[Rfam]
RNA sequence: GUGGCUAUGGUGAAGUGGUUAACACGCCGGAUUGUGGCUCCGGUAUUCGAGGGUUCGAGACCCUCUAGUCACC
Numbered sequence: 001g002u003g004g005c006u007a008u009g010g011u012g013a014a015g016u017g018g019u020u021a022a023c024a025c026g027c028c029g030g031a032u033u034g035u036g037g038c039u040c041c042g043g044u045a046u047u048c049g050a051g052g053g054u055u056c057g058a059g060a061c062c063c064u065c066u067a068g069u070c071a072c073c
Base pairs, nucleotide, nucleotide: 001072002071003070004069005068006067007066010025011024012023027043028042029041030040031039049065050064051063052062053061
Dot-bracket structure: (((((((..(((..........))).(((((.......))))).....(((((.......)))))))))))).
Rfam assigns this 73-nucleotide sequence from Sporomusa termitida to the family "tRNA". Its family is annotated with triplet codon-amino acid adaptor activity in the Gene Ontology. The match comes from Rfam's covariance-model search (60 bits).